[Rfam]
RNA: tRNA
RNA sequence: GGCUCCGUAGCUCAGCCGGAUAGAGCAAGGCUUUCCUAAAGCAGAGGUCGGGGGUUCGAGUCCCUCCGGGGUCG
Numbered sequence: 001g002g003c004u005c006c007g008u009a010g011c012u013c014a015g016c017c018g019g020a021u022a023g024a025g026c027a028a029g030g031c032u033u034u035c036c037u038a039a040a041g042c043a044g045a046g047g048u049c050g051g052g053g054g055u056u057c058g059a060g061u062c063c064c065u066c067c068g069g070g071g072u073c074g
Stems, first nucleotide, its partner, number of pairs: 001073007010026004030042003050066005